[Rfam]
RNA sequence: UCAGCAUCAAUGAUGUUUAACCUCUUGUUAUCCUUGCACUUUGAUUGCCAAUGAAGAAAUUUAUGGGGGAAAUCAUUGACUGAGAUGCUU
Numbered sequence: 001u002c003a004g005c006a007u008c009a010a011u012g013a014u015g016u017u018u019a020a021c022c023u024c025u026u027g028u029u030a031u032c033c034u035u036g037c038a039c040u041u042u043g044a045u046u047g048c049c050a051a052u053g054a055a056g057a058a059a060u061u062u063a064u065g066g067g068g069g070a071a072a073u074c075a076u077u078g079a080c081u082g083a084g085a086u087g088c089u090u
Base pairs, nucleotide, nucleotide: 003089004088005087006086007085008084
Annotation: The family of this 90-nucleotide sequence from Elaeis guineensis is "Small nucleolar RNA snoR26". The organism belongs to Elaeis, within Eukaryota. The base pairs follow the family's consensus structure, which was predicted with WAR. The literature on the family includes a 2001 paper in RNA by Brown et al., "Multiple snoRNA gene clusters from Arabidopsis". By type it is a C/D-box small nucleolar RNA. Gene Ontology terms of the family: nucleolus and RNA processing.